[Rfam]
RNA sequence: AGCUGUAUAUCUGGUUGACUGAAGGUUUUCUGGACGCGGGUUCAAUUCCCGCCGUCUCCACCAAAAGUUGUUUUACAUGAGACUGCUUUUGAUGGGGACGUACUGGUUUCGACAGGGAAAGAUAGGGAGAUCGGCAGCCGGUAGGCGAAGACCGUAAAUCUAGCAAAUUUAUAAAUGCAAACGACGAAAACUUUGCAUUGGCUGCUUGA
Numbered sequence: 001a002g003c004u005g006u007a008u009a010u011c012u013g014g015u016u017g018a019c020u021g022a023a024g025g026u027u028u029u030c031u032g033g034a035c036g037c038g039g040g041u042u043c044a045a046u047u048c049c050c051g052c053c054g055u056c057u058c059c060a061c062c063a064a065a066a067g068u069u070g071u072u073u074u075a076c077a078u079g080a081g082a083c084u085g086c087u088u089u090u091g092a093u094g095g096g097g098a099c100g101u102a103c104u105g106g107u108u109u110c111g112a113c114a115g116g117g118a119a120a121g122a123u124a125g126g127g128a129g130a131u132c133g134g135c136a137g138c139c140g141g142u143a144g145g146c147g148a149a150g151a152c153c154g155u156a157a158a159u160c161u162a163g164c165a166a167a168u169u170u171a172u173a174a175a176u177g178c179a180a181a182c183g184a185c186g187a188a189a190a191c192u193u194u195g196c197a198u199u200g201g202c203u204g205c206u207u208g209a
Stems, first nucleotide, its partner, number of pairs: 002138004015128002026118003030115003036052005053100007139154004